[Rfam]
RNA: Small nucleolar RNA SNORA44
RNA sequence: CAGCAUGUUUCCAAGGGCUGUGGCCGGCGGUGGCCAUGGGAUCUCCAACUGCAUGCCAGAGCAACCUGGAGAGACUUUGACAGCACAGGUCAGCGCGGUACCUGCCGCUGCCACUCGCCUUUCCUAUAGCG
Numbered sequence: 001c002a003g004c005a006u007g008u009u010u011c012c013a014a015g016g017g018c019u020g021u022g023g024c025c026g027g028c029g030g031u032g033g034c035c036a037u038g039g040g041a042u043c044u045c046c047a048a049c050u051g052c053a054u055g056c057c058a059g060a061g062c063a064a065c066c067u068g069g070a071g072a073g074a075c076u077u078u079g080a081c082a083g084c085a086c087a088g089g090u091c092a093g094c095g096c097g098g099u100a101c102c103u104g105c106c107g108c109u110g111c112c113a114c115u116c117g118c119c120u121u122u123c124c125u126a127u128a129g130c131g
Base pairs, nucleotide, nucleotide: 011039012038016035017034018033019032020031021030068124069123070122071121072120073119083111084110086104087103088102089101